[Rfam]
RNA sequence: CCUCCUUUCUUGGCAUGCACGCAGUUUUUCGUACUCGUGUGUGUAUGUAUGGAGGAACAUUAUGUCCAGUGCAAUGUCUUCGGUACCAGUGCGUCUCCCGUCGUCUGGUUCUAUCCUCAAUCACUGGCACAAUU
Numbered sequence: 001c002c003u004c005c006u007u008u009c010u011u012g013g014c015a016u017g018c019a020c021g022c023a024g025u026u027u028u029u030c031g032u033a034c035u036c037g038u039g040u041g042u043g044u045a046u047g048u049a050u051g052g053a054g055g056a057a058c059a060u061u062a063u064g065u066c067c068a069g070u071g072c073a074a075u076g077u078c079u080u081c082g083g084u085a086c087c088a089g090u091g092c093g094u095c096u097c098c099c100g101u102c103g104u105c106u107g108g109u110u111c112u113a114u115c116c117u118c119a120a121u122c123a124c125u126g127g128c129a130c131a132a133u134u
Stems, first nucleotide, its partner, number of pairs: 001055005014043006021036001023035003067126005086108004091104003
A member of the RNA family "Small nucleolar RNA SNORA57" from Albula goreensis, 134 nucleotides long. The base pairs follow the family's consensus structure, which was predicted with PFOLD. A search with the family's covariance model found it, with a score of 86 bits. NCBI's taxonomy places the organism under Eukaryota, Actinopterygii, Elopomorpha, Albulinae, Albula. The family has 26 seed sequences and 1,736 matches in Rfam 15.1. The family's RNA type in Rfam is H/ACA-box small nucleolar RNA. Rfam's curators write: U99 belongs to the H/ACA class of snoRNAs which are thought to guide the sites of modification of uridines to pseudouridines, the target for this family is unknown.